[Rfam]
RNA sequence: GAGUCCAUCUUCCAGUGCAGUGUUGGAUGGUUGAAGUACGAAGCUCCUAACACUGUCUGGUAAAGAUGGCCCC
Number, nucleotide and partner (000 for none) at each position: 001g000002a000003g071004u000005c069006c068007a067008u066009c065010u063011u062012c060013c059014a000015g058016u000017g056018c055019a054020g053021u052022g051023u050024u049025g048026g047027a000028u000029g000030g000031u000032u000033g000034a000035a000036g000037u000038a000039c000040g000041a000042a000043g000044c000045u000046c000047c026048u025049a024050a023051c022052a021053c020054u019055g018056u017057c000058u015059g013060g012061u000062a011063a010064a000065g009066a008067u007068g006069g005070c000071c003072c000073c000
The record is a 73-nucleotide sequence from Rattus norvegicus, which matches "mir-8/mir-141/mir-200 microRNA precursor family" in Rfam. Its Rfam clan is "mir-8 microRNA precursor clan". The sequence is in the family's curated seed alignment. Its family is annotated with RISC complex and miRNA-mediated post-transcriptional gene silencing in the Gene Ontology. The base pairs follow the family's consensus structure, which was predicted with RNAalifold. NCBI's taxonomy places the organism under Eukaryota, Gnathostomata, Sarcopterygii, Muroidea, Rattus.